Shown here is a 131-nucleotide RNA sequence from Malus domestica, a member of the family "small nucleolar RNA snoR134". The source organism's lineage runs through Eukaryota, Spermatophyta, Pentapetalae, rosids and Malus. Pairs were carried over by alignment from the consensus structure, which was predicted with RNAalifold. The match comes from Rfam's covariance-model search (84 bits).
[Rfam]
RNA sequence: ACGCACGAUGCACCCCGGGAUUCACUGAAGAAGAAUGCCCCAAUGCUCGUGCUAUAACGUCGCCGUCAAGGGUUGCAGUUUAGCCUCGCUUUACUCCACGGCUUUUCUGUGUCAAAUCGACCGCUGCAUCU
Numbered sequence: 001a002c003g004c005a006c007g008a009u010g011c012a013c014c015c016c017g018g019g020a021u022u023c024a025c026u027g028a029a030g031a032a033g034a035a036u037g038c039c040c041c042a043a044u045g046c047u048c049g050u051g052c053u054a055u056a057a058c059g060u061c062g063c064c065g066u067c068a069a070g071g072g073u074u075g076c077a078g079u080u081u082a083g084c085c086u087c088g089c090u091u092u093a094c095u096c097c098a099c100g101g102c103u104u105u106u107c108u109g110u111g112u113c114a115a116a117u118c119g120a121c122c123g124c125u126g127c128a129u130c131u
Stems, first nucleotide, its partner, number of pairs: 003052006010046002017040003022034002025030001062124002065121003072113001074111005083102003